[Rfam]
Shown here is a 210-nucleotide sequence from Enterobacterales bacterium CwR94, a member of the family "GcvB RNA".

RNA sequence: ACUUCCUGAGCCGGAACGAAAAGCAAUUUGCAGUUUGUGCGAGAGAUCGCAGAAAUGUGAGGGGCUUUUGGCUUGUGGUCGUGAUGUUGUGUUUGCUUUUUGAUCUGCAUUUGCAGAUUCGGGUAUGCGUACCCUGUUUCAUUUCCUGAAGAAUUAUCCUGUCUGUCCAUAGCGAUAUCAGUAGCACCGCCACUUGCGGUGCUUUUUUUU
Numbered sequence: 001a002c003u004u005c006c007u008g009a010g011c012c013g014g015a016a017c018g019a020a021a022a023g024c025a026a027u028u029u030g031c032a033g034u035u036u037g038u039g040c041g042a043g044a045g046a047u048c049g050c051a052g053a054a055a056u057g058u059g060a061g062g063g064g065c066u067u068u069u070g071g072c073u074u075g076u077g078g079u080c081g082u083g084a085u086g087u088u089g090u091g092u093u094u095g096c097u098u099u100u101u102g103a104u105c106u107g108c109a110u111u112u113g114c115a116g117a118u119u120c121g122g123g124u125a126u127g128c129g130u131a132c133c134c135u136g137u138u139u140c141a142u143u144u145c146c147u148g149a150a151g152a153a154u155u156a157u158c159c160u161g162u163c164u165g166u167c168c169a170u171a172g173c174g175a176u177a178u179c180a181g182u183a184g185c186a187c188c189g190c191c192a193c194u195u196g197c198g199g200u201g202c203u204u205u206u207u208u209u210u
Stems, first nucleotide, its partner, number of pairs: 009073004015069002021067004027061006034054003102119007122133004151179002183203008
About the family: The gcvB gene encodes a small untranslated RNA involved in expression of the dipeptide and oligopeptide transport systems in Escherichia coli. Included several unknown homologues in alignment (Bateman A pers obs). Its family is annotated with mRNA binding and regulation of gene expression in the Gene Ontology. By type it is a non-coding RNA gene.